The record is a 73-nucleotide RNA from Ilumatobacter fluminis, which matches "tRNA" in Rfam. The base pairs follow the family's consensus structure, which is taken from published work. Lineage of the source: Bacteria > Actinomycetota > Acidimicrobiales > Ilumatobacteraceae > Ilumatobacter. It scores 65 bits against the family's covariance model. Rfam describes the family as follows. Transfer RNA (tRNA) molecules are approximately 80 nucleotides in length. Their secondary structure includes four short double-helical elements and three loops (D, anti-codon, and T loops).
RNA sequence: GCCCCAGUAGCUCAGUGGAUAGAGCGUCGGUUUCCUAAACCGUGCGUCGCAGGUUCGAUCCCUGCCUGGGGCA
Numbered sequence: 001g002c003c004c005c006a007g008u009a010g011c012u013c014a015g016u017g018g019a020u021a022g023a024g025c026g027u028c029g030g031u032u033u034c035c036u037a038a039a040c041c042g043u044g045c046g047u048c049g050c051a052g053g054u055u056c057g058a059u060c061c062c063u064g065c066c067u068g069g070g071g072c073a
Stems, first nucleotide, its partner, number of pairs: 001072007010025004028042004049065005